[Rfam]
RNA sequence: AAAACUGAAGGUGAUGGAGCUCGCCUUGCGCCAAAAAUGGCUAAUGGCUCCUGUAGAGAU
Numbered sequence: 001a002a003a004a005c006u007g008a009a010g011g012u013g014a015u016g017g018a019g020c021u022c023g024c025c026u027u028g029c030g031c032c033a034a035a036a037a038u039g040g041c042u043a044a045u046g047g048c049u050c051c052u053g054u055a056g057a058g059a060u
Stems, first nucleotide, its partner, number of pairs: 010025004016051006030041004
The family of this 60-nucleotide RNA sequence from Pelotomaculum propionicicum is "Fluoride riboswitch aptamer (crcB RNA motif)". The organism belongs to Pelotomaculum, within Bacteria. Pairs were carried over by alignment from the consensus structure, which is taken from published work.